Rfam assigns this 90-nucleotide sequence from Neomoorella humiferrea to the family "c-di-GMP-I riboswitch aptamer".
A search with the family's covariance model found it, with a score of 77 bits.
Rfam links the family to the GO term cyclic-di-GMP binding.
GEMM was predicted in a large-scale screen for bacterial structured RNA regulatory elements.
RNA sequence: UACCGCCAAGGGCAAACUCGAUCGAAAGACGGGGACGCAAAGCCACGGGCCUAAAUCUCUUUUUUGAGAUACGGCAGCCGGGUUUCCGGU
Numbered sequence: 001u002a003c004c005g006c007c008a009a010g011g012g013c014a015a016a017c018u019c020g021a022u023c024g025a026a027a028g029a030c031g032g033g034g035a036c037g038c039a040a041a042g043c044c045a046c047g048g049g050c051c052u053a054a055a056u057c058u059c060u061u062u063u064u065u066g067a068g069a070u071a072c073g074g075c076a077g078c079c080g081g082g083u084u085u086c087c088g089g090u
Stems, first nucleotide, its partner, number of pairs: 012038002017033004022029002041084004046080003049075003056069004